[Rfam]
RNA: mir-86 microRNA precursor family
Organism: Brugia malayi
RNA sequence: UGGCCAGUUAAGUGAAUGCUUUGCCACAGUCUUAGAAAUUGAUUAAGCUGGGCUAAGGUUCACUUAGGCUGGACG
Numbered sequence: 001u002g003g004c005c006a007g008u009u010a011a012g013u014g015a016a017u018g019c020u021u022u023g024c025c026a027c028a029g030u031c032u033u034a035g036a037a038a039u040u041g042a043u044u045a046a047g048c049u050g051g052g053c054u055a056a057g058g059u060u061c062a063c064u065u066a067g068g069c070u071g072g073a074c075g
Stems, first nucleotide, its partner, number of pairs: 004072003009066009019057003023053003027050003